A member of the RNA family "Epstein-Barr virus stable intronic sequence RNA 2" from Leptobrachium leishanense, 85 nucleotides long.

[Rfam]
RNA sequence: GGCCUGCUCUAAGGUGGGGGCCCGCUCAGGUCUCUCAAGCUAAAACCUUGUGAGACCUGAGCGGGCCCCCACCGUAGAGCAGGCC
Numbered sequence: 001g002g003c004c005u006g007c008u009c010u011a012a013g014g015u016g017g018g019g020g021c022c023c024g025c026u027c028a029g030g031u032c033u034c035u036c037a038a039g040c041u042a043a044a045a046c047c048u049u050g051u052g053a054g055a056c057c058u059g060a061g062c063g064g065g066c067c068c069c070c071a072c073c074g075u076a077g078a079g080c081a082g083g084c085c
Base pairs, nucleotide, nucleotide: 001085002084003083004082005081006080007079008078009077011075016070017069018068019067020066021065022064023063024062025061026060027059028058029057030056033055034054035053036052
For this family Rfam cites "RNA families in Epstein-Barr virus" (Moss et al., RNA Biol, 2014). Taxonomically the source falls in Leptobrachium (Eukaryota, Eumetazoa, Anura, Megophryidae). The family's RNA type in Rfam is non-coding RNA gene. It scores 42 bits against the family's covariance model.